[Rfam]
RNA sequence: UUGAUUUUGAUUUGUAAGUCGCUUUGGAUAAAAGCAUCUGCUAAAUGACUAAAU
Numbered sequence: 001u002u003g004a005u006u007u008u009g010a011u012u013u014g015u016a017a018g019u020c021g022c023u024u025u026g027g028a029u030a031a032a033a034g035c036a037u038c039u040g041c042u043a044a045a046u047g048a049c050u051a052a053a054u
Base pairs, nucleotide, nucleotide: 013043014041015040016039021035022034023033024032025031
RNA: UnaL2 LINE 3' element
Organism: Sinocyclocheilus grahami